Record summary: U5 spliceosomal RNA: a 119-nucleotide RNA from Strongylus vulgaris. By type it is a spliceosomal small nuclear RNA. U5 RNA is a component of both types of known spliceosome. The source organism's lineage runs through Eukaryota, Bilateria, Chromadorea, Strongyloidea and Strongylus.

[Rfam]
RNA sequence: UAUCUCUGGUUCCUUUCCAUUUAACCGAGAAAAUCUUUCGCCUUUUACUAAAGAUUUCCGUGCAAAGGUGCAUUUAUGAGUGUAUAGUAGUUUUUGCGAUCCCCUCGAAAGAGCGGGGU
Dot-bracket structure: ...(((..((.(((((.((...........((((((((...........))))))))...)).))))).))......))).................(.((((.(.......).)))))